[Rfam]
RNA sequence: AGAUUUGCUUGUAUAGUAGCAAGCAAGGUAAUCAAAAAAAAUACUAUCUUAAG
Number, nucleotide and partner (000 for none) at each position: 001a000002g000003a000004u000005u000006u025007g024008c023009u022010u021011g020012u000013a000014u046015a045016g044017u043018a000019g000020c011021a010022a009023g008024c007025a006026a000027g000028g000029u000030a000031a000032u000033c000034a000035a000036a000037a000038a000039a000040a000041a000042u000043a017044c016045u015046a014047u000048c000049u000050u000051a000052a000053g000
6A RNA: a 53-nucleotide sequence. Rfam's curators put it in the seed alignment. Pairs were carried over by alignment from the consensus structure, which is taken from published work.